[Rfam]
RNA: Small nucleolar RNA SNORD60
RNA sequence: UGCCCGUGAUGACGAACUUUGCAAAACUUUUCUGACACCUACUAUGAGAGCCGCCUGUCGGCUCCUGAUUCAAAGUCUAUUCUGAGGCCA
Numbered sequence: 001u002g003c004c005c006g007u008g009a010u011g012a013c014g015a016a017c018u019u020u021g022c023a024a025a026a027c028u029u030u031u032c033u034g035a036c037a038c039c040u041a042c043u044a045u046g047a048g049a050g051c052c053g054c055c056u057g058u059c060g061g062c063u064c065c066u067g068a069u070u071c072a073a074a075g076u077c078u079a080u081u082c083u084g085a086g087g088c089c090a
Stems, first nucleotide, its partner, number of pairs: 002088003050062004